Overview
A member of the RNA family "permuted transfer-messenger RNA" from Aurantimonas aggregata, 217 nucleotides long. NCBI's taxonomy places the organism under Bacteria, Pseudomonadati, Hyphomicrobiales, Aurantimonadaceae, Aurantimonas. It is annotated as a non-coding RNA gene. Rfam links the family to the GO term RNA catabolic process. A search with the family's covariance model found it, with a score of 140 bits.
RNA sequence: GGCGAUAAACGGCCGAUGUAAUAAGCCUUUCGGACCCGGGGGCGGUACCCGGCGCCUCCACCUGGCUUCAUCGUAGUGUCACGAUGGGGCCAGGCGGGGGCGAAAUAGGAUCGACGAGGGUGUAAAAAUCGGACUUUCGCUCGGAAUGGUACCGCCGUUAUCGGGCCGUUUUAUAGUUGCAAACGACAACUAUGCGGAAGCACGUCUCGCAGCGUAA
Numbered sequence: 001g002g003c004g005a006u007a008a009a010c011g012g013c014c015g016a017u018g019u020a021a022u023a024a025g026c027c028u029u030u031c032g033g034a035c036c037c038g039g040g041g042g043c044g045g046u047a048c049c050c051g052g053c054g055c056c057u058c059c060a061c062c063u064g065g066c067u068u069c070a071u072c073g074u075a076g077u078g079u080c081a082c083g084a085u086g087g088g089g090c091c092a093g094g095c096g097g098g099g100g101c102g103a104a105a106u107a108g109g110a111u112c113g114a115c116g117a118g119g120g121u122g123u124a125a126a127a128a129u130c131g132g133a134c135u136u137u138c139g140c141u142c143g144g145a146a147u148g149g150u151a152c153c154g155c156c157g158u159u160a161u162c163g164g165g166c167c168g169u170u171u172u173a174u175a176g177u178u179g180c181a182a183a184c185g186a187c188a189a190c191u192a193u194g195c196g197g198a199a200g201c202a203c204g205u206c207u208c209g210c211a212g213c214g215u216a217a
Stems, first nucleotide, its partner, number of pairs: 001141005014131004026120003030117003036052005053102007142157003